Rfam assigns this 76-nucleotide RNA sequence from Microcebus murinus to the family "mir-1290 microRNA precursor family". The organism belongs to Microcebus, within Eukaryota. The family has 3 seed sequences and 68 matches in Rfam 15.1. A search with the family's covariance model found it, with a score of 88 bits. The family's consensus secondary structure was predicted with RNAalifold.
Nucleotides: 076
Base pairs, nucleotide, nucleotide: 001076002075003074004073005072006071007070011068012067013066014065018063019062020061021060022059023058024057027056028055029054030053031052032051034049035048036047037046038045039044
Number, partner (000 for none) and nucleotide at each position: 001076g002075a003074g004073c005072a006071u007070c008000a009000u010000g011068u012067g013066g014065g015000c016000a017000c018063u019062c020061a021060a022059a023058a024057a025000g026000u027056u028055u029054c030053a031052g032051a033000u034049u035048u036047c037046a038045g039044a040000g041000c042000a043000u044039u045038u046037u047036g048035g049034a050000u051032u052031u053030u054029g055028a056027a057024u058023u059022u060021u061020u062019g063018g064000a065014u066013u067012u068011g069000a070007g071006a072005u073004g074003c075002u076001c